[Rfam]
RNA: MIR390 microRNA precursor family
Organism: Eucalyptus grandis
RNA sequence: CCGGAGAAUCGGUGAAGCUCAGGAGGGAUAGCGCCGUUUCAAACCUUUCUUUUUUUUGGAGGUGGCGCUAUCCAUCCUGAGUUUCAUGGCUUCUUCGU
Dot-bracket structure: .........(.....(((((((((.((((((((((((........................)))))))))))).))))))))).....).........
Numbered sequence: 001c002c003g004g005a006g007a008a009u010c011g012g013u014g015a016a017g018c019u020c021a022g023g024a025g026g027g028a029u030a031g032c033g034c035c036g037u038u039u040c041a042a043a044c045c046u047u048u049c050u051u052u053u054u055u056u057u058g059g060a061g062g063u064g065g066c067g068c069u070a071u072c073c074a075u076c077c078u079g080a081g082u083u084u085c086a087u088g089g090c091u092u093c094u095u096c097g098u
Stems, first nucleotide, its partner, number of pairs: 010089001016083009026073012